[Rfam]
A member of the RNA family "Small nucleolar RNA SNORA8" from Hymenochirus boettgeri, 135 nucleotides long. Rfam links the family to the GO terms nucleolus and RNA processing. Lineage of the source: Eukaryota > Teleostomi > Batrachia > Pipoidea > Hymenochirus. Rfam's curators write: ACA8 is a member of the H/ACA class of snoRNA that guide the sites of modification of uridines to pseudouridines. Rfam 15.1 lists 1,490 matches to the family in 610 species. Rfam classes the family as an H/ACA-box small nucleolar RNA.
RNA sequence: UGCACUGGAUGGUAUCUGCACCCAAUGGUGACUUCCUGUUGGGGUGUUCAAUAGGCAGUGCUACAAUAACCCAGUAACUGGCACGUUGGUUGGAAGCUCCGUGUUUCUAAACCUGGUUUUUAUGCUGGAACAACG
Numbered sequence: 001u002g003c004a005c006u007g008g009a010u011g012g013u014a015u016c017u018g019c020a021c022c023c024a025a026u027g028g029u030g031a032c033u034u035c036c037u038g039u040u041g042g043g044g045u046g047u048u049c050a051a052u053a054g055g056c057a058g059u060g061c062u063a064c065a066a067u068a069a070c071c072c073a074g075u076a077a078c079u080g081g082c083a084c085g086u087u088g089g090u091u092g093g094a095a096g097c098u099c100c101g102u103g104u105u106u107c108u109a110a111a112c113c114u115g116g117u118u119u120u121u122a123u124g125c126u127g128g129a130a131c132a133a134c135g
Stems, first nucleotide, its partner, number of pairs: 002061006015054001018047006024040005064124002068120002071116004080105005